[Rfam]
The family of this 123-nucleotide RNA from Streptococcus urinalis is "Glycine riboswitch aptamer".
RNA sequence: GGACGGGCUUCUGGAGAGACCUUGAGAAUUUUUAAUUCUCACCUUUUUAAAAGGACGGCGCCGAAGGGGCAAGGCUAAUAAGUACAAGCUCAAUCUCUCAGGCAAAAGGACAGAAGGUAAGUA
Numbered sequence: 001g002g003a004c005g006g007g008c009u010u011c012u013g014g015a016g017a018g019a020c021c022u023u024g025a026g027a028a029u030u031u032u033u034a035a036u037u038c039u040c041a042c043c044u045u046u047u048u049a050a051a052a053g054g055a056c057g058g059c060g061c062c063g064a065a066g067g068g069g070c071a072a073g074g075c076u077a078a079u080a081a082g083u084a085c086a087a088g089c090u091c092a093a094u095c096u097c098u099c100a101g102g103c104a105a106a107a108g109g110a111c112a113g114a115a116g117g118u119a120a121g122u123a
Stems, first nucleotide, its partner, number of pairs: 006118001008116006020058002023055001060103003063099002067097003073090004